[Rfam]
RNA sequence: AAAAAGGGCUUCUACCGUGUGUGGUACGGGGGGGGCCGCGCGCUCGCCCCCGCGGAAUCGACAUCAAGAGAUUUCGGAAGCACAAUUUUUGUGAGGGGGGGUCGCUGGUAACCGCCUGUUCCGGCGCCCCG
Numbered sequence: 001a002a003a004a005a006g007g008g009c010u011u012c013u014a015c016c017g018u019g020u021g022u023g024g025u026a027c028g029g030g031g032g033g034g035g036c037c038g039c040g041c042g043c044u045c046g047c048c049c050c051c052g053c054g055g056a057a058u059c060g061a062c063a064u065c066a067a068g069a070g071a072u073u074u075c076g077g078a079a080g081c082a083c084a085a086u087u088u089u090u091g092u093g094a095g096g097g098g099g100g101g102u103c104g105c106u107g108g109u110a111a112c113c114g115c116c117u118g119u120u121c122c123g124g125c126g127c128c129c130c131g
Stems, first nucleotide, its partner, number of pairs: 008081005013026005027052006034045002037042001053076007099129004104125005110120003